[Rfam]
RNA: Small nucleolar RNA SNORD67
RNA sequence: GGUGACUGUGAUGAGUUGCACUACUAGACAGGUUGCUGAUGCAGUGGCACAGUUGACCUGUCCUGACUGCCUGUGGUGACACCCAUUGUGCACAGGGGCCAUCUGAGUCA
Numbered sequence: 001g002g003u004g005a006c007u008g009u010g011a012u013g014a015g016u017u018g019c020a021c022u023a024c025u026a027g028a029c030a031g032g033u034u035g036c037u038g039a040u041g042c043a044g045u046g047g048c049a050c051a052g053u054u055g056a057c058c059u060g061u062c063c064u065g066a067c068u069g070c071c072u073g074u075g076g077u078g079a080c081a082c083c084c085a086u087u088g089u090g091c092a093c094a095g096g097g098g099c100c101a102u103c104u105g106a107g108u109c110a
Stems, first nucleotide, its partner, number of pairs: 004109003025065003028061007040049003